[Rfam]
RNA sequence: UCUGGUGUUCUGCCACCAGUACCCUACCGGGCCAUGCGUCGCGGGUAACUGCGGGGUGUGAAGCGCUCGGGACACUGUAGCCUCCGCCCACUGGGCGGGCAACCGACCCGCGAGGGGCGAUUGCGACUGCCAGCCUCACGGUGGUCGGGAGC
Numbered sequence: 001u002c003u004g005g006u007g008u009u010c011u012g013c014c015a016c017c018a019g020u021a022c023c024c025u026a027c028c029g030g031g032c033c034a035u036g037c038g039u040c041g042c043g044g045g046u047a048a049c050u051g052c053g054g055g056g057u058g059u060g061a062a063g064c065g066c067u068c069g070g071g072a073c074a075c076u077g078u079a080g081c082c083u084c085c086g087c088c089c090a091c092u093g094g095g096c097g098g099g100c101a102a103c104c105g106a107c108c109c110g111c112g113a114g115g116g117g118c119g120a121u122u123g124c125g126a127c128u129g130c131c132a133g134c135c136u137c138a139c140g141g142u143g144g145u146c147g148g149g150a151g152c
Stems, first nucleotide, its partner, number of pairs: 002019006028069005033060005039054006084098006099124004108115002126145006